[Rfam]
Plant signal recognition particle RNA: a 303-nucleotide sequence from Salix brachista. The family has 63 seed sequences and 4,988 matches in Rfam 15.1. It scores 242 bits against the family's covariance model. It is annotated as a non-coding RNA gene. The organism belongs to Salix, within Eukaryota.

RNA sequence: GCUGAGCCCGGCAACGUGGGCUUGUAACCCGAGUGGGGGCUAUAAGGUGGUGGAACGUUGUCUCAGCCCAGAUGGCCGGGUUCAGAUUUGCUAGAUUCUGGCUCGCCCGUUUCAAGCUAGGAGUCGAGCCAUGGCUUCCUAGUGAAGACGUGGGUGUCAUGGCUCCUAGAGUGGAGGGUACAGCGUGAGGCUGGCUUCACAGAGCAGCGACUACUUCCCUCUCUUGGCAGUGAAAGGAUAACGUGUCGGUGCUGUCUGAAUCCAUCUGGCUUAAUGGGCUGGUCUAACAGGACCAUCACUUUU
Numbered sequence: 001g002c003u004g005a006g007c008c009c010g011g012c013a014a015c016g017u018g019g020g021c022u023u024g025u026a027a028c029c030c031g032a033g034u035g036g037g038g039g040c041u042a043u044a045a046g047g048u049g050g051u052g053g054a055a056c057g058u059u060g061u062c063u064c065a066g067c068c069c070a071g072a073u074g075g076c077c078g079g080g081u082u083c084a085g086a087u088u089u090g091c092u093a094g095a096u097u098c099u100g101g102c103u104c105g106c107c108c109g110u111u112u113c114a115a116g117c118u119a120g121g122a123g124u125c126g127a128g129c130c131a132u133g134g135c136u137u138c139c140u141a142g143u144g145a146a147g148a149c150g151u152g153g154g155u156g157u158c159a160u161g162g163c164u165c166c167u168a169g170a171g172u173g174g175a176g177g178g179u180a181c182a183g184c185g186u187g188a189g190g191c192u193g194g195c196u197u198c199a200c201a202g203a204g205c206a207g208c209g210a211c212u213a214c215u216u217c218c219c220u221c222u223c224u225u226g227g228c229a230g231u232g233a234a235a236g237g238a239u240a241a242c243g244u245g246u247c248g249g250u251g252c253u254g255u256c257u258g259a260a261u262c263c264a265u266c267u268g269g270c271u272u273a274a275u276g277g278g279c280u281g282g283u284c285u286a287a288c289a290g291g292a293c294c295a296u297c298a299c300u301u302u303u
Stems, first nucleotide, its partner, number of pairs: 001040003004023007028037003044302010056290001058287003063282008074271004078263009088254001090252001092251002098249005104243002107237002110235005116228008126165010137154003142149002166171001173218005184209003191202003